[Rfam]
RNA: Fluoride riboswitch aptamer (crcB RNA motif)
RNA sequence: AUCAUAAACGGGAAUGAAGUUCUCCCCUAGCUCUGCUAAAAUUGCUUUUCAGCUGAUGACUUCUAUGGUAAU
Numbered sequence: 001a002u003c004a005u006a007a008a009c010g011g012g013a014a015u016g017a018a019g020u021u022c023u024c025c026c027c028u029a030g031c032u033c034u035g036c037u038a039a040a041a042u043u044g045c046u047u048u049u050c051a052g053c054u055g056a057u058g059a060c061u062u063c064u065a066u067g068g069u070a071a072u
Stems, first nucleotide, its partner, number of pairs: 010026004016063006044053003